[Rfam]
RNA sequence: UUCUUAUCAAGAGCAGGCGGAGGGACUAGCCCGAUGAAGCCCGGCAACCGGCGUAAGCACGGUGCUAAUUCUUGCGGAAACAUUAGUUUCUGAGAGAUGAGGG
Numbered sequence: 001u002u003c004u005u006a007u008c009a010a011g012a013g014c015a016g017g018c019g020g021a022g023g024g025a026c027u028a029g030c031c032c033g034a035u036g037a038a039g040c041c042c043g044g045c046a047a048c049c050g051g052c053g054u055a056a057g058c059a060c061g062g063u064g065c066u067a068a069u070u071c072u073u074g075c076g077g078a079a080a081c082a083u084u085a086g087u088u089u090c091u092g093a094g095a096g097a098u099g100a101g102g103g
Stems, first nucleotide, its partner, number of pairs: 001103008013042001016041003022032003026074001028072002043066004048062002050058001052057001070095001075092006
Dot-bracket structure: ((((((((....(..(((...(((.[.[[)))......))))((((.(((.(....))..))))))...(]].]((((((......))))))..)))))))))
The family of this 103-nucleotide RNA sequence from Paenibacillus sp. JDR-2 is "SAM riboswitch aptamer (S box leader)".